Record summary
Rfam assigns this 122-nucleotide RNA sequence from Mycolicibacterium agri to the family "Group II catalytic intron D1-D4-2". Gene Ontology term of the family: Group II intron splicing. The match comes from Rfam's covariance-model search (87 bits). For this family Rfam cites "Control of branch-site choice by a group II intron" (Chu et al., EMBO J, 2001). The base pairs follow the family's consensus structure.
[Rfam]
RNA sequence: GAAGGAUUGCUGGCCCUUCGGAGUCGCCCUGCGGGGGGAGGCUUCAAACCGCCACAUGCUGCGGGAGUGGUAACGCGAUCGUGGUGAGCGAUGUGGAAAAGGCACGGGUGGACGUGUCAGGC
Number, nucleotide and partner (000 for none) at each position: 001g019002a018003a017004g016005g015006a000007u000008u000009g000010c000011u000012g000013g000014c000015c005016c004017u003018u002019c001020g045021g044022a043023g042024u041025c040026g000027c038028c037029c036030u035031g000032c000033g000034g000035g030036g029037g028038g027039a000040g025041g024042c023043u022044u021045c020046a000047a000048a000049c000050c121051g000052c096053c095054a094055c093056a092057u091058g085059c084060u000061g082062c081063g080064g000065g000066a000067g076068u075069g000070g000071u000072a000073a000074c000075g068076c067077g000078a000079u000080c063081g062082u061083g000084g059085u058086g000087a000088g000089c000090g000091a057092u056093g055094u054095g053096g052097a000098a000099a000100a000101g118102g117103c116104a115105c114106g113107g000108g000109u000110g000111g000112a000113c106114g105115u104116g103117u102118c101119a000120g000121g050122c000